[Rfam]
RNA sequence: GGGCUCGAGGAGCGUUGCGACGGCCCCGUCCGGAGGGUCGCCAGGCUCGGGCAGGCGGGGGUCUUGCGGCCCCGGCCCCGGCAACGGCGCUCGCUUGUG
Numbered sequence: 001g002g003g004c005u006c007g008a009g010g011a012g013c014g015u016u017g018c019g020a021c022g023g024c025c026c027c028g029u030c031c032g033g034a035g036g037g038u039c040g041c042c043a044g045g046c047u048c049g050g051g052c053a054g055g056c057g058g059g060g061g062u063c064u065u066g067c068g069g070c071c072c073c074g075g076c077c078c079c080g081g082c083a084a085c086g087g088c089g090c091u092c093g094c095u096u097g098u099g
Base pairs, nucleotide, nucleotide: 003052004051005050006049007048008047021040022039023038024037025036026035